[Rfam]
RNA: MIR2593 microRNA precursor family
Organism: Medicago truncatula
RNA sequence: UUAUAAGCAAAUUUCUACUUUUUAGAUUCAUUUAAUAAAUGAUGUCUGUGGUUUACAUUGUAGACCACAUACAUCGUUUAUUAAAUGAAUCUAAAAAGUAGAGAUUUGCUUAUAG
Numbered sequence: 001u002u003a004u005a006a007g008c009a010a011a012u013u014u015c016u017a018c019u020u021u022u023u024a025g026a027u028u029c030a031u032u033u034a035a036u037a038a039a040u041g042a043u044g045u046c047u048g049u050g051g052u053u054u055a056c057a058u059u060g061u062a063g064a065c066c067a068c069a070u071a072c073a074u075c076g077u078u079u080a081u082u083a084a085a086u087g088a089a090u091c092u093a094a095a096a097a098g099u100a101g102a103g104a105u106u107u108g109c110u111u112a113u114a115g
Base pairs, nucleotide, nucleotide: 002114003113004112005111006110007109009107010106011105012104013103015101016100017099018098019097020096021095022094023093024092025091027089028088029087030086031085032084033083034082035081036080037079038078039077040076041075042074043073044072049067050066051065052064